A member of the RNA family "Eukaryotic large subunit ribosomal RNA" from Tremella mesenterica, 492 nucleotides of a longer RNA. The match comes from Rfam's covariance-model search (3160 bits). The source organism's lineage runs through Eukaryota, Opisthokonta, Dikarya, Tremellales and Tremella mesenterica. The base pairs follow the family's consensus structure, which is taken from published work.

[Rfam]
RNA sequence: CCCGCCGAAGUUUCCCUCAGGAUAGCAGAAGCUCGCAUCAGUUUUAUGAGGUAAAGCGAAUGAUUAGAGGCCUUGGGGACGCAACGUCCUUAACCUAUUCUCAAACUUUAAAUGCGUAAGAAGCCUCCGUCGCUCAGUUGGACGGGGGCGUGCGAAUGAGAGCUUCUAGUGGGCCAUUUUUGGUAAGCAGAACUGGCGAUGCGGGAUGAACCGAUCGUGAGGUUAAGGUGCCGGAAUACACGCUCAUCAGACACCACAAAAGGUGUUAGUUCAUCUAGACAGCAGGACGGUGGCCAUGGAAGUCGGAACCCGCUAAGGAGUGUGUAACAACUCACCUGCCGAAUGACCUAGCCCUGAAAAUGGAUGGCGCUCAAGCGUGUUACCCAUACCUCACCGUCGGCGUUCUAGUGACGCGCCGACGAGUAGGCGGGCGUGGGGGUCCGUGACGAAGCCUUGGCAGUGAUGCCGGGUGGAACGGCCCCUAGUGCAGAU
Numbered sequence: 001c002c003c004g005c006c007g008a009a010g011u012u013u014c015c016c017u018c019a020g021g022a023u024a025g026c027a028g029a030a031g032c033u034c035g036c037a038u039c040a041g042u043u044u045u046a047u048g049a050g051g052u053a054a055a056g057c058g059a060a061u062g063a064u065u066a067g068a069g070g071c072c073u074u075g076g077g078g079a080c081g082c083a084a085c086g087u088c089c090u091u092a093a094c095c096u097a098u099u100c101u102c103a104a105a106c107u108u109u110a111a112a113u114g115c116g117u118a119a120g121a122a123g124c125c126u127c128c129g130u131c132g133c134u135c136a137g138u139u140g141g142a143c144g145g146g147g148g149c150g151u152g153c154g155a156a157u158g159a160g161a162g163c164u165u166c167u168a169g170u171g172g173g174c175c176a177u178u179u180u181u182g183g184u185a186a187g188c189a190g191a192a193c194u195g196g197c198g199a200u201g202c203g204g205g206a207u208g209a210a211c212c213g214a215u216c217g218u219g220a221g222g223u224u225a226a227g228g229u230g231c232c233g234g235a236a237u238a239c240a241c242g243c244u245c246a247u248c249a250g251a252c253a254c255c256a257c258a259a260a261a262g263g264u265g266u267u268a269g270u271u272c273a274u275c276u277a278g279a280c281a282g283c284a285g286g287a288c289g290g291u292g293g294c295c296a297u298g299g300a301a302g303u304c305g306g307a308a309c310c311c312g313c314u315a316a317g318g319a320g321u322g323u324g325u326a327a328c329a330a331c332u333c334a335c336c337u338g339c340c341g342a343a344u345g346a347c348c349u350a351g352c353c354c355u356g357a358a359a360a361u362g363g364a365u366g367g368c369g370c371u372c373a374a375g376c377g378u379g380u381u382a383c384c385c386a387u388a389c390c391u392c393a394c395c396g397u398c399g400g401c402g403u404u405c406u407a408g409u410g411a412c413g414c415g416c417c418g419a420c421g422a423g424u425a426g427g428c429g430g431g432c433g434u435g436g437g438g439g440u441c442c443g444u445g446a447c448g449a450a451g452c453c454u455u456g457g458c459a460g461u462g463a464u465g466c467c468g469g470g471u472g473g474a475a476c477g478g479c480c481c482c483u484a485g486u487g488c489a490g491a492u
Stems, first nucleotide, its partner, number of pairs: 001431006011024001013022003027167007042121007054109001055107002061103003066098001068096003073093006080086001123149009173197004178192005202213003217394005223388001227384003236381001238380001241377003261355003265352005271346004282339005288312003294306002313317001318333001322331002395421009432487001434484008443476002451471002457466003